Overview
This 81-nucleotide RNA from Carlito syrichta belongs to the Rfam family "Small nucleolar RNA SNORD115". Pairs were carried over by alignment from the consensus structure, which was predicted with PFOLD. Its family is annotated with RNA processing and nucleolus in the Gene Ontology. The literature on the family includes a 2000 paper in Proc Natl Acad Sci U S A by Cavaille et al., "Identification of brain-specific and imprinted small nucleolar RNA genes exhibiting an unusual genomic organization".
RNA sequence: GGGUCAGUGAUGAAAUCUUUGUCUUGUCUCCAGAGAGGUGUUGUCUUAAAAGUUUUGCACAAUAGAGUUGCACUGAGGACA
Dot-bracket structure: .(.(((.((.............................................................)).))..).).
Numbered sequence: 001g002g003g004u005c006a007g008u009g010a011u012g013a014a015a016u017c018u019u020u021g022u023c024u025u026g027u028c029u030c031c032a033g034a035g036a037g038g039u040g041u042u043g044u045c046u047u048a049a050a051a052g053u054u055u056u057g058c059a060c061a062a063u064a065g066a067g068u069u070g071c072a073c074u075g076a077g078g079a080c081a
Stems, first nucleotide, its partner, number of pairs: 002080001004078001005075002008072002